[Rfam]
RNA: L31-Gammaproteobacteria ribosomal protein leader
RNA sequence: CGUGUGGUACUUUGUUGGAUGAAAUAAUUCAUUCAAGCUGAGCAGCGACACGGCCUAAAUAGAGGU
Number, nucleotide and partner (000 for none) at each position: 001c052002g051003u050004g049005u048006g000007g046008u045009a000010c000011u041012u040013u000014g038015u037016u036017g000018g000019a000020u000021g000022a000023a000024a000025u000026a000027a000028u000029u000030c000031a000032u000033u000034c000035a000036a016037g015038c014039u000040g012041a011042g000043c000044a000045g008046c007047g000048a005049c004050a003051c002052g001053g000054c000055c000056u000057a000058a000059a000060u000061a000062g000063a000064g000065g000066u000